[Rfam]
RNA sequence: AAUAGGCUUUCAGCGUCCGCUGGCAGAGAGCCGAGCGCACGCAGUCAUCGGUGGUGAAACGCACGAUGCCGAUCAUCUCGUCUUCCUCAAAACGCGCCAGCGCAUCGCUCAGGCCAGAUCUCACGCCAGAGGGCAAGUCGCACUGGGUGAUAUCGCCAUUGACGAUGACCGUCACGUUCUCCCCGAGGCGGGUU
Numbered sequence: 001a002a003u004a005g006g007c008u009u010u011c012a013g014c015g016u017c018c019g020c021u022g023g024c025a026g027a028g029a030g031c032c033g034a035g036c037g038c039a040c041g042c043a044g045u046c047a048u049c050g051g052u053g054g055u056g057a058a059a060c061g062c063a064c065g066a067u068g069c070c071g072a073u074c075a076u077c078u079c080g081u082c083u084u085c086c087u088c089a090a091a092a093c094g095c096g097c098c099a100g101c102g103c104a105u106c107g108c109u110c111a112g113g114c115c116a117g118a119u120c121u122c123a124c125g126c127c128a129g130a131g132g133g134c135a136a137g138u139c140g141c142a143c144u145g146g147g148u149g150a151u152a153u154c155g156c157c158a159u160u161g162a163c164g165a166u167g168a169c170c171g172u173c174a175c176g177u178u179c180u181c182c183c184c185g186a187g188g189c190g191g192g193u194u
Base pairs, nucleotide, nucleotide: 003053004052014041015040016039018037019036061078063076065074066073067072083112084111088107093102094101095100113193114192115191117189119188120187121186122185125134126133127132137166138165139164140163144158145157146156171183174180
A member of the RNA family "Yersinia sRNA 251" from Klebsiella pneumoniae, 194 nucleotides long. Pairs were carried over by alignment from the consensus structure, which was predicted with RNAfold. Taxonomically the source falls in Klebsiella pneumoniae subsp. pneumoniae (Bacteria, Pseudomonadota, Gammaproteobacteria, Enterobacteriaceae). The match comes from Rfam's covariance-model search (167 bits). Rfam classes the family as an antisense RNA.